[Rfam]
RNA sequence: UUCAGCGUACUUCUCCGAGUCUUUAUUCCUAAAGUCUUUUAUUAAGACAAAGGAAUUCUGACCGUAAGGGUUCUGGAGAGAAAUCUCAGAGCCUUCCGUGUUUGAAAAGGAGAUACACCGUCCGGACU
Number, nucleotide and partner (000 for none) at each position: 001u000002u000003c000004a121005g000006c000007g000008u000009a000010c000011u000012u113013c112014u111015c110016c109017g000018a000019g062020u061021c060022u000023u000024u000025a056026u055027u054028c053029c052030u000031a000032a000033a000034g048035u047036c046037u045038u044039u000040u000041a000042u000043u000044a038045a037046g036047a035048c034049a000050a000051a000052g029053g028054a027055a026056u025057u000058c000059u000060g021061a020062c019063c000064g000065u000066a000067a000068g094069g093070g092071u091072u090073c089074u088075g087076g000077a086078g085079a084080g000081a000082a000083a000084u079085c078086u077087c075088a074089g073090a072091g071092c070093c069094u068095u105096c104097c000098g000099u000100g000101u000102u000103u000104g096105a095106a000107a000108a000109g016110g015111a014112g013113a012114u000115a000116c000117a000118c000119c000120g000121u004122c000123c000124g000125g000126a000127c000128u000